Shown here is a 181-nucleotide sequence from Sphenodon punctatus, a member of the family "Small nucleolar RNA SNORA23". It scores 175 bits against the family's covariance model. The source organism's lineage runs through Eukaryota, Chordata, Sauropsida, Sauria and Sphenodon. Rfam links the family to the GO terms RNA processing and nucleolus. Rfam classes the family as an H/ACA-box small nucleolar RNA. The members of this family belong to the H/ACA class of snoRNAs which are thought to guide the sites of modification of uridines to pseudouridines.
RNA sequence: ACAGCAAUGUGUGCAUAGUUUUCAUCUGUGUUUGAUGGUAUGGUCCAUUUGUGUUUUGCAUUUGGACUAUACUGUUCACACACAACCUGUGGCCAAAGAUGAACAUGAGAUCAUAGUACUGGUCUAGUGAUGUCUGAAAGACAAAUCUACCACUGGCCAGCCUCCAAACUCUCAAACAUAG
Number, nucleotide and partner (000 for none) at each position: 001a000002c000003a000004g000005c000006a000007a000008u000009g000010u000011g000012u000013g090014c089015a088016u000017a000018g000019u000020u000021u000022u000023c000024a000025u000026c000027u000028g000029u082030g081031u080032u000033u078034g077035a076036u074037g073038g072039u071040a070041u069042g000043g067044u066045c065046c064047a063048u000049u000050u060051g059052u058053g000054u000055u000056u000057u000058g052059c051060a050061u000062u000063u047064g046065g045066a044067c043068u000069a041070u040071a039072c038073u037074g036075u000076u035077c034078a033079c000080a031081c030082a029083c000084a000085a000086c000087c000088u015089g014090u013091g000092g000093c000094c000095a000096a000097a000098g000099a000100u000101g000102a000103a000104c000105a000106u174107g173108a172109g171110a170111u000112c000113a000114u000115a000116g000117u000118a000119c160120u159121g158122g157123u156124c155125u000126a154127g153128u152129g151130a000131u145132g142133u141134c140135u000136g000137a000138a000139a000140g134141a133142c132143a000144a000145a131146u000147c000148u000149a000150c000151c129152a128153c127154u126155g124156g123157c122158c121159a120160g119161c000162c000163u000164c000165c000166a000167a000168a000169c000170u110171c109172u108173c107174a106175a000176a000177c000178a000179u000180a000181g000